Rfam assigns this 34-nucleotide RNA sequence from Exiguobacterium sp. 8-11-1 to the family "L31-Firmicutes ribosomal protein leader". The base pairs follow the family's consensus structure, which is taken from published work. It is one of the family's seed sequences.
[Rfam]
RNA sequence: CUCUAGGUUGAAAGAAUACUUAGGGCCGAAGGAG
Numbered sequence: 001c002u003c004u005a006g007g008u009u010g011a012a013a014g015a016a017u018a019c020u021u022a023g024g025g026c027c028g029a030a031g032g033a034g
Base pairs, nucleotide, nucleotide: 001025002024003023004022005021006020007019008018